[Rfam]
RNA sequence: CUUGCCACUGAUCAUCUCUUGCAGGCGUGGCUGCAGUGCCACGUUUGUGUCAUUCAGUGGCAGAGAGGAUAAGGUGAGGUCUUCCCCUGGUGCUCUGACCCACGUGGGUUCCCAGGAUUGCUCAACAACC
Numbered sequence: 001c002u003u004g005c006c007a008c009u010g011a012u013c014a015u016c017u018c019u020u021g022c023a024g025g026c027g028u029g030g031c032u033g034c035a036g037u038g039c040c041a042c043g044u045u046u047g048u049g050u051c052a053u054u055c056a057g058u059g060g061c062a063g064a065g066a067g068g069a070u071a072a073g074g075u076g077a078g079g080u081c082u083u084c085c086c087c088u089g090g091u092g093c094u095c096u097g098a099c100c101c102a103c104g105u106g107g108g109u110u111c112c113c114a115g116g117a118u119u120g121c122u123c124a125a126c127a128a129c130c
Stems, first nucleotide, its partner, number of pairs: 002063005008057004016049001021048004026043006073126001075124004083117003089111002091108001093106001095104001

Description: Small nucleolar RNA SNORA17: a 130-nucleotide RNA from Formicarius rufipectus. Its family is annotated with RNA processing and nucleolus in the Gene Ontology. Taxonomically the source falls in Formicarius (Eukaryota, Chordata, Neognathae, Formicariidae). For this family Rfam cites "Mapping to nucleotide resolution of pseudouridine residues in large subunit ribosomal RNAs from representative eukaryotes, prokaryotes, archaebacteria, mitochondria and chloroplasts" (Ofengand and Bakin, J Mol Biol, 1997). Rfam classes the family as an H/ACA-box small nucleolar RNA. A search with the family's covariance model found it, with a score of 56 bits.